[Rfam]
RNA: Group II catalytic intron D1-D4-6
RNA sequence: GAAAUCCUGUCCGGAAAGGUGCUAACCACACCACCGGUAGCGAGUCUUGAGUCGGUAGCAGUAAUGCUGCCUUCUAAGCGUAGACAGUCAGGUAACAGGGCUGAAAGUGAUAGAGUACCGAAAUCGAUGCAGUCCGGCAGGCCGACGCUUUUAGCAUAGCGGAAGGCAACAGGUGGGUUUAUCGCAAUGGUGAGAUUUCACACACUGCCGCGGUGUCUGAGAGCC
Dot-bracket structure: ..........((((...((.(.[.[[..).)).))))..((..((((((((..(((((((....)))))))..))...)).)))).))........................(.((((((..............(((((((((..((((........))))...))).....(((.(...(((......]].])))..).))).)))))))))))))........
Numbered sequence: 001g002a003a004a005u006c007c008u009g010u011c012c013g014g015a016a017a018g019g020u021g022c023u024a025a026c027c028a029c030a031c032c033a034c035c036g037g038u039a040g041c042g043a044g045u046c047u048u049g050a051g052u053c054g055g056u057a058g059c060a061g062u063a064a065u066g067c068u069g070c071c072u073u074c075u076a077a078g079c080g081u082a083g084a085c086a087g088u089c090a091g092g093u094a095a096c097a098g099g100g101c102u103g104a105a106a107g108u109g110a111u112a113g114a115g116u117a118c119c120g121a122a123a124u125c126g127a128u129g130c131a132g133u134c135c136g137g138c139a140g141g142c143c144g145a146c147g148c149u150u151u152u153a154g155c156a157u158a159g160c161g162g163a164a165g166g167c168a169a170c171a172g173g174u175g176g177g178u179u180u181a182u183c184g185c186a187a188u189g190g191u192g193a194g195a196u197u198u199c200a201c202a203c204a205c206u207g208c209c210g211c212g213g214u215g216u217c218u219g220a221g222a223g224c225c
Stems, first nucleotide, its partner, number of pairs: 011037004018032002021029001023193001025191002040088002044085004048080002050075002054071007113217001115216006135210006141167003146161004173203003177199001181196003